The record is a 273-nucleotide RNA sequence from Musca domestica, which matches "U11 spliceosomal RNA" in Rfam.
RNA sequence: AAAAAGGGCGCUCGUCUUUGCACUUACUAAUAUGCAAAAGAUCACAGAACAUUGUUCUGUGUGCGGACGCAUUGCAGCAUUGCCGUUCAAUUGAUUGGACUAGGCAUAGCUUUUUUUUGCUUUGUCUUUGUAGUUCAUGUGAAUGGUUGAAUGCUUCAGUGGGGUAUGGCUUUGCAUAUCCAGUGCGUAAUUUUUGUAAAGAUGAGAAUGGGGGCUGCCGUAUCAAAGUGGAUUGCAGUCGAUCCAGAUGUGAUUGAUUAGCGUGCCAUUUUG
Numbered sequence: 001a002a003a004a005a006g007g008g009c010g011c012u013c014g015u016c017u018u019u020g021c022a023c024u025u026a027c028u029a030a031u032a033u034g035c036a037a038a039a040g041a042u043c044a045c046a047g048a049a050c051a052u053u054g055u056u057c058u059g060u061g062u063g064c065g066g067a068c069g070c071a072u073u074g075c076a077g078c079a080u081u082g083c084c085g086u087u088c089a090a091u092u093g094a095u096u097g098g099a100c101u102a103g104g105c106a107u108a109g110c111u112u113u114u115u116u117u118u119g120c121u122u123u124g125u126c127u128u129u130g131u132a133g134u135u136c137a138u139g140u141g142a143a144u145g146g147u148u149g150a151a152u153g154c155u156u157c158a159g160u161g162g163g164g165u166a167u168g169g170c171u172u173u174g175c176a177u178a179u180c181c182a183g184u185g186c187g188u189a190a191u192u193u194u195u196g197u198a199a200a201g202a203u204g205a206g207a208a209u210g211g212g213g214g215c216u217g218c219c220g221u222a223u224c225a226a227a228g229u230g231g232a233u234u235g236c237a238g239u240c241g242a243u244c245c246a247g248a249u250g251u252g253a254u255u256g257a258u259u260a261g262c263g264u265g266c267c268a269u270u271u272u273g
Base pairs, nucleotide, nucleotide: 008186009185010184011183012182013069014068015067016066017065070161071160072159073158074157076155077154078153079152080151081150162181163180164179165178166177167176168175206271207270208269209268211267212266214264215263217262218261220259
Its Rfam clan is "U1 clan". Taxonomically the source falls in Musca (Eukaryota, Eumetazoa, Dicondylia, Endopterygota). The base pairs follow the family's consensus structure, which is taken from published work.